Shown here is a 254-nucleotide sequence from Streptomyces sp. Ncost-T10-10d, a member of the family "Streptomyces sRNA 4677". By type it is a small RNA. The organism belongs to Streptomyces, within Bacteria. Located in the intergenic region between anti-sigma factor SCO4677 gene and a putative regulatory protein gene SCO4676. scr4677 expression requires the SCO4677 activity and scr4677 sRNA itself seem to affect the levels of the SCO4676-associated transcripts.
RNA sequence: CGACCCGGUGAACCACGUCGCCGCGCCCCACGACACAUAAAGCUUUGAAGAACCUGGGGAAAUCACCCUCCCCACCCAAACCCGGCCCCACCCCGCCCCUGUCACUCGCGCGGGUGACAUAGGGCAACUGGGCUGGAUUUCAUACGGGUUGGCUGGCAUAUGCUCGCCGCGACAACUGCAGACAUGCGACGGCCCCCGACGAGAUUGCAGUCUCGGCCGAGGGCCUGACCACCGAGGAAGUACGGAGCUUCCCG
Number, nucleotide and partner (000 for none) at each position: 001c000002g000003a000004c000005c000006c000007g233008g232009u231010g230011a000012a000013c000014c000015a000016c000017g000018u000019c000020g097021c000022c095023g094024c000025g000026c000027c000028c000029c000030a000031c000032g000033a000034c000035a000036c000037a000038u000039a000040a000041a000042g000043c000044u000045u000046u000047g000048a000049a000050g000051a000052a000053c000054c000055u000056g000057g000058g000059g000060a000061a000062a000063u000064c000065a000066c000067c000068c000069u000070c000071c000072c000073c000074a000075c000076c000077c000078a000079a000080a000081c000082c000083c000084g000085g000086c000087c000088c000089c000090a000091c000092c000093c000094c023095g022096c000097c020098c000099c000100u000101g000102u117103c116104a115105c114106u113107c112108g000109c000110g000111c000112g107113g106114g105115u104116g103117a102118c000119a000120u000121a000122g000123g000124g000125c000126a000127a000128c000129u000130g000131g000132g168133c000134u166135g165136g164137a000138u000139u000140u000141c000142a000143u000144a000145c000146g000147g000148g000149u000150u000151g000152g000153c000154u000155g000156g000157c000158a000159u000160a000161u000162g000163c000164u136165c135166g134167c000168c132169g000170c000171g000172a000173c000174a000175a000176c000177u000178g000179c000180a000181g000182a000183c000184a000185u000186g000187c000188g000189a000190c000191g225192g224193c223194c222195c221196c000197c219198g218199a000200c000201g214202a213203g212204a211205u000206u000207g000208c000209a000210g000211u204212c203213u202214c201215g000216g000217c000218c198219g197220a000221g195222g194223g193224c192225c191226u000227g000228a000229c000230c010231a009232c008233c007234g000235a000236g252237g251238a250239a249240g248241u000242a000243c000244g000245g000246a000247g000248c240249u239250u238251c237252c236253c000254g000